[Rfam]
RNA sequence: CCUGUACACACAGGUCGGGAUGUGACCUGCGCGGCUUCGGCCGCGGGGAGGCGGAUCGGCCGCCGAACGGUUGAACCACACG
Numbered sequence: 001c002c003u004g005u006a007c008a009c010a011c012a013g014g015u016c017g018g019g020a021u022g023u024g025a026c027c028u029g030c031g032c033g034g035c036u037u038c039g040g041c042c043g044c045g046g047g048g049a050g051g052c053g054g055a056u057c058g059g060c061c062g063c064c065g066a067a068c069g070g071u072u073g074a075a076c077c078a079c080a081c082g
Stems, first nucleotide, its partner, number of pairs: 001014005017077002024072004
A member of the RNA family "eL15-Euryarchaeota ribosomal protein leader", 82 nucleotides long. Rfam classes the family as a cis-regulatory leader. On this family, see Eckert and Weinberg, BMC Microbiol 2020: "Discovery of 20 novel ribosomal leader candidates in bacteria and archaea".